[Rfam]
RNA sequence: GAUUGAACCACCAGCAGGGACUGUCAAGAGUAUCUGCUAAACCGCCUUACGGUGCUUUUAUUUAACAAUAGAGGUAUUGAGCGGCUAAGGAAAAGGGGCGAUGAAAGAAUCGUUUCAGGU
Numbered sequence: 001g002a003u004u005g006a007a008c009c010a011c012c013a014g015c016a017g018g019g020a021c022u023g024u025c026a027a028g029a030g031u032a033u034c035u036g037c038u039a040a041a042c043c044g045c046c047u048u049a050c051g052g053u054g055c056u057u058u059u060a061u062u063u064a065a066c067a068a069u070a071g072a073g074g075u076a077u078u079g080a081g082c083g084g085c086u087a088a089g090g091a092a093a094a095g096g097g098g099c100g101a102u103g104a105a106a107g108a109a110u111c112g113u114u115u116c117a118g119g120u
Base pairs, nucleotide, nucleotide: 001012003010013038014037015036016035017034018033020031021030022029043119045090046089047088048087049086050084051078052077054075055074056073058071059070060069061068095116096115097114098113099112100111
RNA: Group II catalytic intron D1-D4-2